Shown here is a 133-nucleotide RNA sequence from Pectinatus brassicae, a member of the family "c-di-AMP riboswitch aptamer (ydaO/yuaA leader)". Lineage of the source: Bacteria > Bacillati > Bacillota > Selenomonadaceae > Pectinatus.
RNA sequence: GUAAAUUAUAAACCGAAUCCAACUCAGGAGCGGGGGAACCAUUCUAGGGGUGAAUGUUGUUUUUUGCAAGGGCCGGUUUCUUCUUCUGUCCCUAAUCCGACAGCUAACCUCGCAGGUAAAAAAAAACAAAAGA
Numbered sequence: 001g002u003a004a005a006u007u008a009u010a011a012a013c014c015g016a017a018u019c020c021a022a023c024u025c026a027g028g029a030g031c032g033g034g035g036g037a038a039c040c041a042u043u044c045u046a047g048g049g050g051u052g053a054a055u056g057u058u059g060u061u062u063u064u065u066g067c068a069a070g071g072g073c074c075g076g077u078u079u080c081u082u083c084u085u086c087u088g089u090c091c092c093u094a095a096u097c098c099g100a101c102a103g104c105u106a107a108c109c110u111c112g113c114a115g116g117u118a119a120a121a122a123a124a125a126a127c128a129a130a131a132g133a
Stems, first nucleotide, its partner, number of pairs: 012117003018029003030113006040047001048098003056067002059064001070092003